[Rfam]
RNA: Group II catalytic intron D1-D4-5
RNA sequence: AACAACUGAUUGACUGAAAGUAGGAAUGAAAGCCGUCAGGUUGAGCUGAAACUAGUUAUCUAAUACUCCUACAUGCAAGGCGUGAUAGUAGUCACAAAUUGUAUGAAGCUAGGUGAAGUCGACUGAACAAAACCUAAGUGAGAAAUCAUAUGAUUUUGGAUAGGUCGGGAUGCUACAAA
Number, nucleotide and partner (000 for none) at each position: 001a000002a000003c000004a000005a000006c000007u000008g000009a000010u000011u000012g000013a000014c000015u000016g000017a000018a057019a056020g000021u054022a053023g052024g000025a000026a000027u000028g000029a000030a000031a047032g046033c045034c000035g000036u000037c000038a000039g000040g000041u000042u000043g000044a000045g033046c032047u031048g000049a000050a000051a000052c023053u022054a021055g000056u019057u018058a171059u170060c169061u168062a000063a000064u000065a000066c000067u000068c113069c112070u111071a110072c105073a104074u103075g102076c101077a100078a099079g000080g000081c000082g095083u094084g093085a092086u000087a000088g000089u000090a000091g000092u085093c084094a083095c082096a000097a000098a000099u078100u077101g076102u075103a074104u073105g072106a000107a000108g000109c000110u071111a070112g069113g068114u000115g000116a000117a000118g000119u000120c167121g166122a165123c164124u163125g000126a000127a000128c158129a157130a000131a000132a139133c138134c000135u000136a000137a000138g133139u132140g000141a000142g000143a156144a155145a154146u153147c152148a000149u000150a000151u000152g147153a146154u145155u144156u143157u129158g128159g000160a000161u000162a000163g124164g123165u122166c121167g120168g061169g060170a059171u058172g000173c000174u000175a000176c000177a000178a000179a000